[Rfam]
RNA sequence: AGCUCGCCCUCCCCGCACAGGAGGGCGGACCGAGGAACCGGAGCUCUCUGCCCUGACUGCCCCGGCUCCUCCCACGGCCGACCGGGACCGCACACCCCGCCGGCCGGUAGUGCUCCGGGCUGCGGUGCCGGGAGGGUUGAGGGUCCCUCCCAGGCGC
Numbered sequence: 001a002g003c004u005c006g007c008c009c010u011c012c013c014c015g016c017a018c019a020g021g022a023g024g025g026c027g028g029a030c031c032g033a034g035g036a037a038c039c040g041g042a043g044c045u046c047u048c049u050g051c052c053c054u055g056a057c058u059g060c061c062c063c064g065g066c067u068c069c070u071c072c073c074a075c076g077g078c079c080g081a082c083c084g085g086g087a088c089c090g091c092a093c094a095c096c097c098c099g100c101c102g103g104c105c106g107g108u109a110g111u112g113c114u115c116c117g118g119g120c121u122g123c124g125g126u127g128c129c130g131g132g133a134g135g136g137u138u139g140a141g142g143g144u145c146c147c148u149c150c151c152a153g154g155c156g157c
Base pairs, nucleotide, nucleotide: 004028005027006026008024009023010022011021012020032071033070034069035068036067038065039064040063041062043060044059045056046055075106076105077104078103079102080101084097085096086095111127112126113125114124116122117121130151131150132149133148134147135146136145
RNA: Streptomyces sRNA scr5239